[Rfam]
RNA sequence: GAGAUGGAGGGUUGCCGGCCUGUUGCCCCCGCGCCGGCGGCUCUCCCAGGGGGCGGGUUUCAAAUUCCGCCCCCGCAACACCUUCCGUCAGGAACAUGCCCCCCUCCGUCGGAAGGAACUCGGGCGGUGAAGUCCCCCAGCUUCACCGCCCACUUUC
Numbered sequence: 001g002a003g004a005u006g007g008a009g010g011g012u013u014g015c016c017g018g019c020c021u022g023u024u025g026c027c028c029c030c031g032c033g034c035c036g037g038c039g040g041c042u043c044u045c046c047c048a049g050g051g052g053g054c055g056g057g058u059u060u061c062a063a064a065u066u067c068c069g070c071c072c073c074c075g076c077a078a079c080a081c082c083u084u085c086c087g088u089c090a091g092g093a094a095c096a097u098g099c100c101c102c103c104c105u106c107c108g109u110c111g112g113a114a115g116g117a118a119c120u121c122g123g124g125c126g127g128u129g130a131a132g133u134c135c136c137c138c139a140g141c142u143u144c145a146c147c148g149c150c151c152a153c154u155u156u157c
Base pairs, nucleotide, nucleotide: 009043010042011041012040013039014038015037017035018034019033049074050073051072052071053070054069055068056067057066060064075121078120081116082115085112086111087110091107092106093105122151123150124149125148126147127146128145129144130143131142132141133140
The record is a 157-nucleotide sequence from Bradyrhizobium sp. ORS 278, which matches "Bradyrhizobiaceae sRNA BjrC80" in Rfam. By type it is a small RNA. The source organism's lineage runs through Bacteria, Alphaproteobacteria, Hyphomicrobiales, Nitrobacteraceae and Bradyrhizobium. The pairing is the family consensus, mapped onto this sequence.